[Rfam]
A member of the RNA family "Plant signal recognition particle RNA" from Gossypium stocksii, 303 nucleotides long. The family's RNA type in Rfam is non-coding RNA gene. Rfam links the family to the GO terms SRP-dependent cotranslational protein targeting to membrane, signal sequence recognition and signal recognition particle, endoplasmic reticulum targeting. A search with the family's covariance model found it, with a score of 160 bits. A reference for the family is Wild et al. (2002), "Towards the structure of the mammalian signal recognition particle", Curr Opin Struct Biol.
RNA sequence: GCCAAGCUUGGUAACUUGAGCUUGUAACUUGAGUAGGGGGCUUUAAGGUGAUGGAAUGCGGUUUUCGCUUUGCUGAGUCAAAUCUCGAGUGGUUUAACUCUGGCUUGCCCGUUCCAAGUUGAGAGUUGAGCCAAGGGACUUGAUUGUAAACACCGAGUCUCGUGAUUCCUAGAGUGGAGGAUAUUGCGUGAGGCUGGUUUCACAGGGCAACGAAGACCCCUCUCUCUUGACAGUGGAAGGAUAACAGGCUUGAUCCAUCCGACUUAAAUUCAUGAAGCAAAAACUUGGUUACAUCCCACAUCA
Numbered sequence: 001g002c003c004a005a006g007c008u009u010g011g012u013a014a015c016u017u018g019a020g021c022u023u024g025u026a027a028c029u030u031g032a033g034u035a036g037g038g039g040g041c042u043u044u045a046a047g048g049u050g051a052u053g054g055a056a057u058g059c060g061g062u063u064u065u066c067g068c069u070u071u072g073c074u075g076a077g078u079c080a081a082a083u084c085u086c087g088a089g090u091g092g093u094u095u096a097a098c099u100c101u102g103g104c105u106u107g108c109c110c111g112u113u114c115c116a117a118g119u120u121g122a123g124a125g126u127u128g129a130g131c132c133a134a135g136g137g138a139c140u141u142g143a144u145u146g147u148a149a150a151c152a153c154c155g156a157g158u159c160u161c162g163u164g165a166u167u168c169c170u171a172g173a174g175u176g177g178a179g180g181a182u183a184u185u186g187c188g189u190g191a192g193g194c195u196g197g198u199u200u201c202a203c204a205g206g207g208c209a210a211c212g213a214a215g216a217c218c219c220c221u222c223u224c225u226c227u228u229g230a231c232a233g234u235g236g237a238a239g240g241a242u243a244a245c246a247g248g249c250u251u252g253a254u255c256c257a258u259c260c261g262a263c264u265u266a267a268a269u270u271c272a273u274g275a276a277g278c279a280a281a282a283a284c285u286u287g288g289u290u291a292c293a294u295c296c297c298a299c300a301u302c303a
Stems, first nucleotide, its partner, number of pairs: 001041003004023008028038001029036002049303005054296001056294003059287003062283004067278001069277003074272005081264001083262002088258001090257003095253001100252001102250006109240002112238005118231008128168003132164002135161008145152002169174001176221002179218002185214001187212003194205003